Shown here is a 571-nucleotide RNA sequence from Asterophora parasitica, a member of the family "Nuclear RNase P".

[Rfam]
RNA sequence: GGCAGACAGAUGGCUGCGAGGCUUGUUACGCACAGAGCUUCAUGUCCUUAUUUACGAGCGGGCCAAGGUCUGAGUAUUCCAGUCCUCCUCCAGGACACGGUUGUAACCAACCGAGCGACUUACCAGGAAUCUGCCCCCCGGUCCCAGCCCGAAGAUCUCCUUGUCCGACAGAGGGACCCCGGAUCCAGUCUCUACAGCAGACAUCCCGGGCCGGCGAGGGUUUGGAACUUGUUGCGAGGAUCGGAUGACGUGCCCCAAUCACGUCGAUCUUCCACUGCGAGUGUGGUGUUACCACCCUCAAAGCCCUCUGGAAUAUUGGGAGCACUCGUUGAGGUGCUUCGGUUAUCUUUCGGCAAUGACCCGUGUGGUGCAGACCUUUGUUGAUCCGACAAUGCUCUCAAUGCUUGCCGUCCAGGGCACUUGCCUUGGGUGGACUCUCGUGCGUGGGAAGGUUCUGUGUUUAUGACACUGGUCGACUUGGAGAUGCACUUCAUCCUUCAGUUCACUUCGCAGCUCGCGCAAUACCUUUGCUCCCUUCGCGAAACUCGAUUCAGACUACUCCUUGUCUGCC
Numbered sequence: 001g002g003c004a005g006a007c008a009g010a011u012g013g014c015u016g017c018g019a020g021g022c023u024u025g026u027u028a029c030g031c032a033c034a035g036a037g038c039u040u041c042a043u044g045u046c047c048u049u050a051u052u053u054a055c056g057a058g059c060g061g062g063c064c065a066a067g068g069u070c071u072g073a074g075u076a077u078u079c080c081a082g083u084c085c086u087c088c089u090c091c092a093g094g095a096c097a098c099g100g101u102u103g104u105a106a107c108c109a110a111c112c113g114a115g116c117g118a119c120u121u122a123c124c125a126g127g128a129a130u131c132u133g134c135c136c137c138c139c140g141g142u143c144c145c146a147g148c149c150c151g152a153a154g155a156u157c158u159c160c161u162u163g164u165c166c167g168a169c170a171g172a173g174g175g176a177c178c179c180c181g182g183a184u185c186c187a188g189u190c191u192c193u194a195c196a197g198c199a200g201a202c203a204u205c206c207c208g209g210g211c212c213g214g215c216g217a218g219g220g221u222u223u224g225g226a227a228c229u230u231g232u233u234g235c236g237a238g239g240a241u242c243g244g245a246u247g248a249c250g251u252g253c254c255c256c257a258a259u260c261a262c263g264u265c266g267a268u269c270u271u272c273c274a275c276u277g278c279g280a281g282u283g284u285g286g287u288g289u290u291a292c293c294a295c296c297c298u299c300a301a302a303g304c305c306c307u308c309u310g311g312a313a314u315a316u317u318g319g320g321a322g323c324a325c326u327c328g329u330u331g332a333g334g335u336g337c338u339u340c341g342g343u344u345a346u347c348u349u350u351c352g353g354c355a356a357u358g359a360c361c362c363g364u365g366u367g368g369u370g371c372a373g374a375c376c377u378u379u380g381u382u383g384a385u386c387c388g389a390c391a392a393u394g395c396u397c398u399c400a401a402u403g404c405u406u407g408c409c410g411u412c413c414a415g416g417g418c419a420c421u422u423g424c425c426u427u428g429g430g431u432g433g434a435c436u437c438u439c440g441u442g443c444g445u446g447g448g449a450a451g452g453u454u455c456u457g458u459g460u461u462u463a464u465g466a467c468a469c470u471g472g473u474c475g476a477c478u479u480g481g482a483g484a485u486g487c488a489c490u491u492c493a494u495c496c497u498u499c500a501g502u503u504c505a506c507u508u509c510g511c512a513g514c515u516c517g518c519g520c521a522a523u524a525c526c527u528u529u530g531c532u533c534c535c536u537u538c539g540c541g542a543a544a545c546u547c548g549a550u551u552c553a554g555a556c557u558a559c560u561c562c563u564u565g566u567c568u569g570c571c
Base pairs, nucleotide, nucleotide: 001571002570003569004568008563009562012514018508021059022058023057024056025055035049036048037047070554071553072552073551074550076241077240078239079238082096083095084094085093086092098113099112100111101110102109115235116234117233118232119231136220137219515542516541517540518539519538521536